[Rfam]
RNA sequence: AAUCAAACACUGCCGAAUUUCCGUGUACGAAAACGGGGGAACCACACUGGGUGAAUUGAGCCCGACCGCGUAUGUCCGUUGGACAAGCCGGUCUGAGGGAAUCAUAGGGGACCUUCAACCGAACCCCACAGCUAACCUCGUAGGCAAUGGGAGGAGCACUU
Numbered sequence: 001a002a003u004c005a006a007a008c009a010c011u012g013c014c015g016a017a018u019u020u021c022c023g024u025g026u027a028c029g030a031a032a033a034c035g036g037g038g039g040a041a042c043c044a045c046a047c048u049g050g051g052u053g054a055a056u057u058g059a060g061c062c063c064g065a066c067c068g069c070g071u072a073u074g075u076c077c078g079u080u081g082g083a084c085a086a087g088c089c090g091g092u093c094u095g096a097g098g099g100a101a102u103c104a105u106a107g108g109g110g111a112c113c114u115u116c117a118a119c120c121g122a123a124c125c126c127c128a129c130a131g132c133u134a135a136c137c138u139c140g141u142a143g144g145c146a147a148u149g150g151g152a153g154g155a156g157c158a159c160u161u
Stems, first nucleotide, its partner, number of pairs: 011146004018032003033141006049126003057104003107120002